[Rfam]
RNA: Small nucleolar RNA SNORD59
RNA sequence: CCUUCACUGAUGAGCAAAACUCAAUGACUUUCGUUCUUCUGAGAUUGCUGAAGCAAUUCAUCUUCUGAGAAGG
Numbered sequence: 001c002c003u004u005c006a007c008u009g010a011u012g013a014g015c016a017a018a019a020c021u022c023a024a025u026g027a028c029u030u031u032c033g034u035u036c037u038u039c040u041g042a043g044a045u046u047g048c049u050g051a052a053g054c055a056a057u058u059c060a061u062c063u064u065c066u067g068a069g070a071a072g073g
Stems, first nucleotide, its partner, number of pairs: 001073003005069001